Rfam assigns this 133-nucleotide RNA from Carlito syrichta to the family "Small nucleolar RNA SNORA64/SNORA10 family". The match comes from Rfam's covariance-model search (76 bits). Clan: SNORA64 clan. The family's consensus secondary structure is taken from published work.

RNA sequence: CCUCUUUUACCUCUGUUUGAGCACACAGGCCCAGUGUGUGCCUGCAGUAUUUUCAGGGAGAGGGAGGAAGGCUCUCCCAAUGCGUGACAGAGCCACCCCAGAUGGCAUUUUUGUUCCUAGUAGUAUGACAGGU
Numbered sequence: 001c002c003u004c005u006u007u008u009a010c011c012u013c014u015g016u017u018u019g020a021g022c023a024c025a026c027a028g029g030c031c032c033a034g035u036g037u038g039u040g041c042c043u044g045c046a047g048u049a050u051u052u053u054c055a056g057g058g059a060g061a062g063g064g065a066g067g068a069a070g071g072c073u074c075u076c077c078c079a080a081u082g083c084g085u086g087a088c089a090g091a092g093c094c095a096c097c098c099c100a101g102a103u104g105g106c107a108u109u110u111u112u113g114u115u116c117c118u119a120g121u122a123g124u125a126u127g128a129c130a131g132g133u
Stems, first nucleotide, its partner, number of pairs: 002066007011058005019043001021041006074123002077120001080118001082116001089112003096105002